[Rfam]
RNA sequence: UCUGGCAGCACGCCGAAUCCUGCCGCUGGCCCGACCGACCUCGACUUCCCUGAGGCAGGAACGGGAGAUCGCAGACCUCCGGGCCGCGUCAGUGGCCCUCGGGGUGAAGCCGUGACCGCCACGGCCGGGCAGUCCUCCCGCCCGAACCCGACAGCUCAUCCCGCAGGCGCGCUCGGAGGAUCU
Numbered sequence: 001u002c003u004g005g006c007a008g009c010a011c012g013c014c015g016a017a018u019c020c021u022g023c024c025g026c027u028g029g030c031c032c033g034a035c036c037g038a039c040c041u042c043g044a045c046u047u048c049c050c051u052g053a054g055g056c057a058g059g060a061a062c063g064g065g066a067g068a069u070c071g072c073a074g075a076c077c078u079c080c081g082g083g084c085c086g087c088g089u090c091a092g093u094g095g096c097c098c099u100c101g102g103g104g105u106g107a108a109g110c111c112g113u114g115a116c117c118g119c120c121a122c123g124g125c126c127g128g129g130c131a132g133u134c135c136u137c138c139c140g141c142c143c144g145a146a147c148c149c150g151a152c153a154g155c156u157c158a159u160c161c162c163g164c165a166g167g168c169g170c171g172c173u174c175g176g177a178g179g180a181u182c183u
Stems, first nucleotide, its partner, number of pairs: 011169004018060007062163005070101002102149003110124004127143004
A member of the RNA family "c-di-AMP riboswitch aptamer (ydaO/yuaA leader)" from Geodermatophilus obscurus, 183 nucleotides long.